[Rfam]
RNA sequence: UUAUUAGCAUAACUAUGUCCCAUGUAAUAUUUGGGACAUAAUUAUACUAAGC
Numbered sequence: 001u002u003a004u005u006a007g008c009a010u011a012a013c014u015a016u017g018u019c020c021c022a023u024g025u026a027a028u029a030u031u032u033g034g035g036a037c038a039u040a041a042u043u044a045u046a047c048u049a050a051g052c
Stems, first nucleotide, its partner, number of pairs: 006048002009045004014040003018036004022031001
Overview:
This 52-nucleotide RNA from Odocoileus virginianus belongs to the Rfam family "mir-1302 microRNA precursor family". On this family, see Morin et al., Genome Res 2008: "Application of massively parallel sequencing to microRNA profiling and discovery in human embryonic stem cells". The organism belongs to Odocoileus virginianus, within Eukaryota. The match comes from Rfam's covariance-model search (63 bits).